The family of this 144-nucleotide RNA from Listeria welshimeri is "Ribosomal protein L10 leader". For this family Rfam cites "Specific interactions of the L10(L12)4 ribosomal protein complex with mRNA, rRNA, and L11" (Iben and Draper, Biochemistry, 2008). By type it is a cis-regulatory leader. The sequence is in the family's curated seed alignment. The source organism's lineage runs through Bacteria, Bacillota, Caryophanales, Listeriaceae and Listeria welshimeri.
RNA sequence: AACAAUCAAAUAUCCUUACCGUAGACAGUUGGUGCGUUUACCGCUUAAAUUUGCCACCCGAGGGAUUUCUUUUGAAGUGUACAUUCGUGUGCAUUCCACAAAAACCUCUGGCGUCUACGGUGUCAGAGGUUUUUUGUUGCUGAU
Numbered sequence: 001a002a003c004a005a006u007c008a009a010a011u012a013u014c015c016u017u018a019c020c021g022u023a024g025a026c027a028g029u030u031g032g033u034g035c036g037u038u039u040a041c042c043g044c045u046u047a048a049a050u051u052u053g054c055c056a057c058c059c060g061a062g063g064g065a066u067u068u069c070u071u072u073u074g075a076a077g078u079g080u081a082c083a084u085u086c087g088u089g090u091g092c093a094u095u096c097c098a099c100a101a102a103a104a105c106c107u108c109u110g111g112c113g114u115c116u117a118c119g120g121u122g123u124c125a126g127a128g129g130u131u132u133u134u135u136g137u138u139g140c141u142g143a144u
Stems, first nucleotide, its partner, number of pairs: 028058001030056004034044003105129010